The record is a 98-nucleotide sequence from Enterococcus cecorum, which matches "Purine riboswitch aptamer" in Rfam. The organism belongs to Enterococcus cecorum, within Bacteria. Riboswitches are metabolite binding domains within certain messenger RNAs that serve as precision sensors for their corresponding targets. The family's consensus secondary structure is taken from published work. For this family Rfam cites "Riboswitches Control Fundamental Biochemical Pathways in Bacillus subtilis and Other Bacteria" (Mandal et al., Cell, 2003).
[Rfam]
RNA sequence: AGUUUUUCAUAAUUUAACGCUUAUAUAAAGUUGUAAUAAGGACAACAGUUUCUACCCAAUGCCGUAAAUAUUGGACUAUAAGCAAAUAAACGUUUGUU
Numbered sequence: 001a002g003u004u005u006u007u008c009a010u011a012a013u014u015u016a017a018c019g020c021u022u023a024u025a026u027a028a029a030g031u032u033g034u035a036a037u038a039a040g041g042a043c044a045a046c047a048g049u050u051u052c053u054a055c056c057c058a059a060u061g062c063c064g065u066a067a068a069u070a071u072u073g074g075a076c077u078a079u080a081a082g083c084a085a086a087u088a089a090a091c092g093u094u095u096g097u098u
Base pairs, nucleotide, nucleotide: 019083020082021081022080023079024078025077030046031045032044033043034042056074057073058072059071060070061069